[Rfam]
Record summary
Shown here is a 57-nucleotide RNA sequence from Nesterenkonia sedimenti, a member of the family "msiK RNA". The base pairs follow the family's consensus structure, which is taken from published work. The family's RNA type in Rfam is cis-regulatory element.
RNA sequence: GUCUUUCACCUUCACUACGGAUCGUCGGGCACGUACCUGCCCGUGAAAGGGAUACAC
Numbered sequence: 001g002u003c004u005u006u007c008a009c010c011u012u013c014a015c016u017a018c019g020g021a022u023c024g025u026c027g028g029g030c031a032c033g034u035a036c037c038u039g040c041c042c043g044u045g046a047a048a049g050g051g052a053u054a055c056a057c
Base pairs, nucleotide, nucleotide: 009049011047012046013045014044026043027042028041029040030039031038